[Rfam]
RNA sequence: UGAUGACUGUUCCUCCUCUUGCCUUCAGGUCUGGCACUAGGAUUUUAGGUCAUCAUAAAUUAAAAUUUGGUUUUCUUCACUCAGAGAAUAUUAGGAUAAUGGGAUUAUCUGUUUAUUCUCUGAUAUUUGCGGAAUCAAACAUUU
Numbered sequence: 001u002g003a004u005g006a007c008u009g010u011u012c013c014u015c016c017u018c019u020u021g022c023c024u025u026c027a028g029g030u031c032u033g034g035c036a037c038u039a040g041g042a043u044u045u046u047a048g049g050u051c052a053u054c055a056u057a058a059a060u061u062a063a064a065a066u067u068u069g070g071u072u073u074u075c076u077u078c079a080c081u082c083a084g085a086g087a088a089u090a091u092u093a094g095g096a097u098a099a100u101g102g103g104a105u106u107a108u109c110u111g112u113u114u115a116u117u118c119u120c121u122g123a124u125a126u127u128u129g130c131g132g133a134a135u136c137a138a139a140c141a142u143u144u
Stems, first nucleotide, its partner, number of pairs: 001055008014042004020036004069136006081123010094110005
Dot-bracket structure: ((((((((.....((((..((((.........))))..)))).....)))))))).............((((((......((((((((((...(((((.......)))))...)))))))))).......))))))........